[Rfam]
RNA: Pseudomonas sRNA CrcZ
Organism: Pseudomonas sp. ABC1
Nucleotides: 383
Base pairs, nucleotide, nucleotide: 045080046079048077049076050075051074095211096210097209098208099207109204110203111202129178130177131176132175133174134173135172152163153162154161155160229247230246231245232244233243269371270370271369275301276300277299278298317361318360319359320358334356335354336353337352338351339350340349341348342347
Number, partner (000 for none) and nucleotide at each position: 001000a002000c003000a004000a005000c006000a007000a008000c009000a010000a011000u012000a013000a014000c015000a016000a017000g018000c019000a020000c021000a022000u023000c024000c025000a026000g027000a028000a029000u030000a031000a032000g033000a034000a035000c036000a037000a038000a039000a040000c041000g042000u043000a044000c045080c046079g047000g048077c049076u050075c051074c052000a053000g054000c055000a056000a057000a058000a059000c060000a061000a062000c063000g064000a065000u066000a067000a068000a069000a070000a071000g072000g073000c074051g075050g076049a077048g078000g079046c080045g081000u082000a083000g084000c085000u086000a087000a088000c089000u090000g091000a092000u093000u094000c095211u096210u097209u098208u099207g100000g101000a102000g103000a104000g105000g106000a107000c108000u109204u110203g111202c112000c113000a114000u115000c116000g117000g118000g119000g120000u121000u122000c123000g124000c125000c126000c127000c128000a129178c130177g131176a132175c133174c134173a135172g136000g137000c138000c139000g140000a141000g142000a143000a144000c145000a146000a147000c148000a149000a150000g151000a152163c153162u154161g155160c156000c157000a158000a159000a160155g161154c162153a163152g164000u165000g166000c167000c168000u169000g170000a171000a172135c173134u174133g175132g176131u177130u178129g179000g180000a181000u182000c183000g184000a185000c186000g187000a188000u189000c190000a191000c192000c193000g194000g195000c196000a197000a198000c199000u200000c201000a202111g203110c204109g205000a206000c207099c208098a209097a210096a211095g212000c213000a214000a215000u216000c217000c218000g219000u220000u221000u222000g223000c224000u225000c226000u227000u228000u229247g230246c231245u232244c233243c234000c235000a236000u237000u238000c239000a240000g241000u242000a243233g244232g245231g246230g247229c248000a249000u250000u251000u252000c253000c254000g255000a256000a257000g258000g259000c260000g261000a262000u263000a264000g265000c266000c267000u268000g269371a270370g271369g272000a273000a274000a275301c276300g277299g278298g279000u280000a281000a282000c283000a284000a285000c286000a287000a288000g289000a290000a291000c292000a293000a294000u295000c296000u297000g298278c299277c300276c301275g302000g303000g304000a305000c306000c307000a308000a309000c310000a311000a312000u313000a314000a315000c316000a317361a318360a319359g320358c321000a322000c323000g324000u325000c326000a327000c328000a329000c330000u331000c332000u333000u334356c335354g336353g337352g338351g339350g340349a341348g342347c343000u344000u345000c346000g347342g348341c349340u350339c351338c352337c353336c354335u355000u356334g357000u358320g359319c360318u361317u362000u363000c364000c365000g366000c367000g368000c369271u370270u371269u372000a373000u374000c375000c376000a377000c378000c379000a380000u381000c382000c383000c